[Rfam]
RNA sequence: GUGACAGAAGAGAGUGAGCACACAGGGUACUUUCUUGCAUGCUAGAGCCUUUCGUGCUUGAAGCUCUGCGUGCUCACUCUCUAUCUGUCAU
Numbered sequence: 001g002u003g004a005c006a007g008a009a010g011a012g013a014g015u016g017a018g019c020a021c022a023c024a025g026g027g028u029a030c031u032u033u034c035u036u037g038c039a040u041g042c043u044a045g046a047g048c049c050u051u052u053c054g055u056g057c058u059u060g061a062a063g064c065u066c067u068g069c070g071u072g073c074u075c076a077c078u079c080u081c082u083a084u085c086u087g088u089c090a091u
Stems, first nucleotide, its partner, number of pairs: 001091008010081012023068003
Background
The record is a 91-nucleotide sequence from Hibiscus syriacus, which matches "mir-156 microRNA precursor family" in Rfam. The base pairs follow the family's consensus structure, which was predicted with PFOLD. About the family: This family represents the plant microRNA (miRNA) precursor mir-156. Taxonomically the source falls in Hibiscus (Eukaryota, Magnoliopsida, Pentapetalae, Malvaceae). On this family, see Ambros, Cell 2001: "microRNAs: tiny regulators with great potential".